[Rfam]
RNA: mir-148/mir-152 microRNA precursor family
RNA sequence: CCAGGCCCAAGUUCUGUGAUACACUUUGGCUCUGCAUCUGAGGCGGUCAGUGCAUAACAGAACUUUGGCUCAGG
Numbered sequence: 001c002c003a004g005g006c007c008c009a010a011g012u013u014c015u016g017u018g019a020u021a022c023a024c025u026u027u028g029g030c031u032c033u034g035c036a037u038c039u040g041a042g043g044c045g046g047u048c049a050g051u052g053c054a055u056a057a058c059a060g061a062a063c064u065u066u067g068g069c070u071c072a073g074g
Stems, first nucleotide, its partner, number of pairs: 004070004009065008022052004028048004